About this RNA: The family of this 332-nucleotide sequence from Dechloromonas sp. HYN0024 is "Betaproteobacteria transfer-messenger RNA". It scores 322 bits against the family's covariance model. Gene Ontology term of the family: RNA catabolic process. Its Rfam clan is "tRNA clan". Bacterial tmRNA, also known as 10Sa RNA or SsrA, is named for its dual tRNA and mRNA-like properties. Its role is to liberate the mRNA from a stalled ribosome.
RNA sequence: CGACGAGGCCUCGCUUGUAAAACCCCCACCCCGCCCCCAUAAUUGAAAGCAUGGUUGUAAUUCCGGCAAUCUGGAGGCGUUCUGGACAGGGGUUCGAUUCCCCUCACCUCCACCCAAGCACAUCGAUAUCGGUGUUUUUGGUUGGGGGUGUACUGGUUUCGACAGGGCGGGCAAAGGUGAGCAGGCAACUCGUCAGGCGAUCGACGUUAAUGAAGCAAAUCCAUAAAUGCCAAUGAUGAGCAUUUCGCUAUUGCCGCCUAAAAACGGUUAGCCGGGGCUGCUAGAGCCUUGUUACCAAAGAUAGCCGGCGGGGACUUCGGUCCCCGUCGUCA
Numbered sequence: 001c002g003a004c005g006a007g008g009c010c011u012c013g014c015u016u017g018u019a020a021a022a023c024c025c026c027c028a029c030c031c032c033g034c035c036c037c038c039a040u041a042a043u044u045g046a047a048a049g050c051a052u053g054g055u056u057g058u059a060a061u062u063c064c065g066g067c068a069a070u071c072u073g074g075a076g077g078c079g080u081u082c083u084g085g086a087c088a089g090g091g092g093u094u095c096g097a098u099u100c101c102c103c104u105c106a107c108c109u110c111c112a113c114c115c116a117a118g119c120a121c122a123u124c125g126a127u128a129u130c131g132g133u134g135u136u137u138u139u140g141g142u143u144g145g146g147g148g149u150g151u152a153c154u155g156g157u158u159u160c161g162a163c164a165g166g167g168c169g170g171g172c173a174a175a176g177g178u179g180a181g182c183a184g185g186c187a188a189c190u191c192g193u194c195a196g197g198c199g200a201u202c203g204a205c206g207u208u209a210a211u212g213a214a215g216c217a218a219a220u221c222c223a224u225a226a227a228u229g230c231c232a233a234u235g236a237u238g239a240g241c242a243u244u245u246c247g248c249u250a251u252u253g254c255c256g257c258c259u260a261a262a263a264a265c266g267g268u269u270a271g272c273c274g275g276g277g278c279u280g281c282u283a284g285a286g287c288c289u290u291g292u293u294a295c296c297a298a299a300g301a302u303a304g305c306c307g308g309c310g311g312g313g314a315c316u317u318c319g320g321u322c323c324c325c326g327u328c329g330u331c332a
Stems, first nucleotide, its partner, number of pairs: 053190005063185002066182002069178004078169007088104005105150007191206004275289004280305004308327008
Dot-bracket structure: ....................................................(((((.....((.((.((((.....(((((((...(((((.......)))))(((((((................................)))))))............))))))).....))))..)).)))))))((((........))))....................................................................((((.[[[[..))))............]]]]..((((((((....)))))))).....